[Rfam]
RNA sequence: UUUGCCUCUCGAAUAACCAGGCGAUGCGAAAAUCUUGAAAUACGACGCCGUUUGGUUCAGACAGGGGCACAUAGCAAGUCCUUCGAAGCUGUUUGAGGGAAAGGAACGCUUAUCUCUUCCUGUUCCUUUCCCAGACAGUUUCGGAUAUUA
Numbered sequence: 001u002u003u004g005c006c007u008c009u010c011g012a013a014u015a016a017c018c019a020g021g022c023g024a025u026g027c028g029a030a031a032a033u034c035u036u037g038a039a040a041u042a043c044g045a046c047g048c049c050g051u052u053u054g055g056u057u058c059a060g061a062c063a064g065g066g067g068c069a070c071a072u073a074g075c076a077a078g079u080c081c082u083u084c085g086a087a088g089c090u091g092u093u094u095g096a097g098g099g100a101a102a103g104g105a106a107c108g109c110u111u112a113u114c115u116c117u118u119c120c121u122g123u124u125c126c127u128u129u130c131c132c133a134g135a136c137a138g139u140u141u142c143g144g145a146u147a148u149u150a
Stems, first nucleotide, its partner, number of pairs: 003069005009064001015057008026048003084143006091132001096127003100124001102121005108116001
Annotation: The family of this 150-nucleotide RNA sequence from Morella rubra is "Small nucleolar RNA snoR138". Rfam links the family to the GO terms RNA processing and nucleolus. On this family, see Chen and Wu, Nucleic Acids Res 2009: "Mining small RNA sequencing data: a new approach to identify small nucleolar RNAs in Arabidopsis". The family's RNA type in Rfam is H/ACA-box small nucleolar RNA. Pairs were carried over by alignment from the consensus structure, which was predicted with mfold. The match comes from Rfam's covariance-model search (66 bits).